[Rfam]
Shown here is an 82-nucleotide RNA from Chlamydomonas reinhardtii, a member of the family "tRNA". NCBI's taxonomy places the organism under Eukaryota, Viridiplantae, Chlorophyta, Chlorophyceae, Chlamydomonas. The match comes from Rfam's covariance-model search (50 bits). For this family Rfam cites "tRNAscan-SE: a program for improved detection of transfer RNA genes in genomic sequence" (Lowe and Eddy, Nucleic Acids Res, 1997).
RNA sequence: GGGAGUUUGGUCUAGUGGUAUGAUUCUCGCUUAGGGAAGCCUAGCAUGCGAGAGGUCGUGGGUUCAAUUCCCGCAACUCCCC
Numbered sequence: 001g002g003g004a005g006u007u008u009g010g011u012c013u014a015g016u017g018g019u020a021u022g023a024u025u026c027u028c029g030c031u032u033a034g035g036g037a038a039g040c041c042u043a044g045c046a047u048g049c050g051a052g053a054g055g056u057c058g059u060g061g062g063u064u065c066a067a068u069u070c071c072c073g074c075a076a077c078u079c080c081c082c
Base pairs, nucleotide, nucleotide: 001081002080003079004078005077006076007075010024011023012022026052027051028050029049030048058074059073060072061071062070